This 61-nucleotide RNA belongs to the Rfam family "GP20-b RNA". Rfam classes the family as a cis-regulatory element. Pairs were carried over by alignment from the consensus structure, which is taken from published work.
RNA sequence: UGUCCGCAAUGACGUAAAACUAUGUAAGCAAGUGGAGGCAACCCACGUAAAAACAAGCGUA
Numbered sequence: 001u002g003u004c005c006g007c008a009a010u011g012a013c014g015u016a017a018a019a020c021u022a023u024g025u026a027a028g029c030a031a032g033u034g035g036a037g038g039c040a041a042c043c044c045a046c047g048u049a050a051a052a053a054c055a056a057g058c059g060u061a
Stems, first nucleotide, its partner, number of pairs: 001014004006025003032046004